RNA sequence: GGAGGUGUCCGGGUUCCUGGUGGGCCCCACGGUCUUCAAAACCGAUGAGCGUGACUCAGUCGCGCUGGCGGGUUCGAUUCCCGUCCACCUCC
Dot-bracket structure: (((((((....((.(((....))).))..((((.......))))...(((((.........)))))..((((.......))))..)))))))
Numbered sequence: 001g002g003a004g005g006u007g008u009c010c011g012g013g014u015u016c017c018u019g020g021u022g023g024g025c026c027c028c029a030c031g032g033u034c035u036u037c038a039a040a041a042c043c044g045a046u047g048a049g050c051g052u053g054a055c056u057c058a059g060u061c062g063c064g065c066u067g068g069c070g071g072g073u074u075c076g077a078u079u080c081c082c083g084u085c086c087a088c089c090u091c092c
Stems, first nucleotide, its partner, number of pairs: 001092007012027002015024003030044004048066005069083004
Rfam assigns this 92-nucleotide RNA from a Nitriliruptorales bacterium to the family "Selenocysteine transfer RNA". Pairs were carried over by alignment from the consensus structure, which is taken from published work. A search with the family's covariance model found it, with a score of 70 bits. Its family is annotated with triplet codon-amino acid adaptor activity in the Gene Ontology.